[Rfam]
RNA sequence: UCCUCUCUGGUCCAGUGGUUCUAGAUAGUUCAACAGCAGUCAGAUCUUGUGAAAUGUUUAGGACCACUUGAUCCGGG
Numbered sequence: 001u002c003c004u005c006u007c008u009g010g011u012c013c014a015g016u017g018g019u020u021c022u023a024g025a026u027a028g029u030u031c032a033a034c035a036g037c038a039g040u041c042a043g044a045u046c047u048u049g050u051g052a053a054a055u056g057u058u059u060a061g062g063a064c065c066a067c068u069u070g071a072u073c074c075g076g077g
Base pairs, nucleotide, nucleotide: 014068015067016066017065018064019063021061022060024058025057026056027055029053030052031051032050

Rfam assigns this 77-nucleotide RNA sequence from Poecilia formosa to the family "mir-203 microRNA precursor family". A reference for the family is Lim et al. (2003), "Vertebrate microRNA genes", Science. A search with the family's covariance model found it, with a score of 69 bits. Its family is annotated with RISC complex and miRNA-mediated post-transcriptional gene silencing in the Gene Ontology. Taxonomically the source falls in Poecilia (Eukaryota, Euteleostomi, Osteoglossocephalai, Neoteleostei).